[Rfam]
RNA: Vault RNA
Organism: Carlito syrichta
RNA sequence: GGGCCGGCUUUAGCUCAGCGGUUCCUUCGACAGAACCGAAUUCUGACAAACCGCCCUCCGGAAGGAGGGGGGUUCGAGACCCGCGGGCGCUUUCCGGUCCUUUU
Numbered sequence: 001g002g003g004c005c006g007g008c009u010u011u012a013g014c015u016c017a018g019c020g021g022u023u024c025c026u027u028c029g030a031c032a033g034a035a036c037c038g039a040a041u042u043c044u045g046a047c048a049a050a051c052c053g054c055c056c057u058c059c060g061g062a063a064g065g066a067g068g069g070g071g072g073u074u075c076g077a078g079a080c081c082c083g084c085g086g087g088c089g090c091u092u093u094c095c096g097g098u099c100c101u102u103u104u
Base pairs, nucleotide, nucleotide: 002099003098004097005096006095007094013088014087015086016085018084019083020082021081026078027077028076029075030074